[Rfam]
RNA sequence: CUCAUAAGUAAUAAAAGGUGCGUUUAGGUCCCUUAACUUUAUUGAAAGUAUCAGUUUGGUCCUUUCUGUUAAUUUAAUUCAAAAAAAUGUUAAAUUUUGGUCCCUUAUCUUAUUUAAUUAGUAUUAGUUUGGUCCCUAAAGUUAACGUUUUUUUGAAUUAAAUUAACAGAAAGGAUCAAACCGAUACUUUAAAUAAAGUUAAGGGACCUAAACGGACAGUUCAUUACUUAUGGGA
Number, nucleotide and partner (000 for none) at each position: 001c000002u233003c232004a231005u230006a229007a228008g227009u000010a000011a000012u000013a000014a000015a000016a000017g000018g000019u000020g000021c000022g000023u212024u211025u210026a000027g208028g207029u206030c000031c204032c203033u202034u201035a200036a199037c198038u197039u196040u195041a194042u193043u192044g000045a190046a189047a188048g000049u000050a000051u000052c000053a000054g000055u000056u000057u000058g000059g000060u000061c000062c000063u000064u000065u000066c000067u000068g000069u000070u000071a000072a000073u000074u000075u000076a000077a000078u000079u000080c000081a000082a000083a000084a000085a000086a000087a000088u000089g000090u000091u000092a000093a000094a000095u000096u000097u000098u000099g000100g000101u000102c000103c000104c000105u000106u000107a000108u000109c000110u000111u000112a000113u000114u000115u000116a000117a000118u000119u000120a000121g000122u000123a000124u000125u000126a000127g000128u000129u000130u000131g000132g000133u000134c000135c000136c000137u000138a000139a000140a000141g000142u000143u000144a000145a000146c000147g000148u000149u000150u000151u000152u000153u000154u000155g000156a000157a000158u000159u000160a000161a000162a000163u000164u000165a000166a000167c000168a000169g000170a000171a000172a000173g000174g000175a000176u000177c000178a000179a000180a000181c000182c000183g000184a000185u000186a000187c000188u047189u046190u045191a000192a043193a042194u041195a040196a039197a038198g037199u036200u035201a034202a033203g032204g031205g000206a029207c028208c027209u000210a025211a024212a023213c000214g000215g000216a000217c000218a000219g000220u000221u000222c000223a000224u000225u000226a000227c008228u007229u006230a005231u004232g003233g002234g000235a000
About this RNA
The family of this 235-nucleotide sequence from Medicago truncatula is "MIR2655 microRNA precursor family". Its family is annotated with RISC complex and miRNA-mediated post-transcriptional gene silencing in the Gene Ontology. NCBI's taxonomy places the organism under Eukaryota, Spermatophyta, Papilionoideae, Hologalegina, Medicago. The family has 25 seed sequences and 892 matches in Rfam 15.1.